[Rfam]
RNA: SAM (S-adenosyl methionine) riboswitch aptamer
RNA sequence: GGUCAUGAGUGCCAGCGCGAAGCCCCGGCUUGCUGGCCGGCAACCCUCCUACCGCGGUGGGGUGCCCCGGGUGAGGACCAGGCCGGUCGCGUAUCGCGGCAGGCAAGCGCGGACC
Dot-bracket structure: ((((....(.((((((....((......)).)))))))(((..(((.((......))..))).))).........))))..(((.((((((...)))))).)))...........
Numbered sequence: 001g002g003u004c005a006u007g008a009g010u011g012c013c014a015g016c017g018c019g020a021a022g023c024c025c026c027g028g029c030u031u032g033c034u035g036g037c038c039g040g041c042a043a044c045c046c047u048c049c050u051a052c053c054g055c056g057g058u059g060g061g062g063u064g065c066c067c068c069g070g071g072u073g074a075g076g077a078c079c080a081g082g083c084c085g086g087u088c089g090c091g092u093a094u095c096g097c098g099g100c101a102g103g104c105a106a107g108c109g110c111g112g113a114c115c
Stems, first nucleotide, its partner, number of pairs: 001079004009038001011037006021030002039066003044062003048057002082104003086100006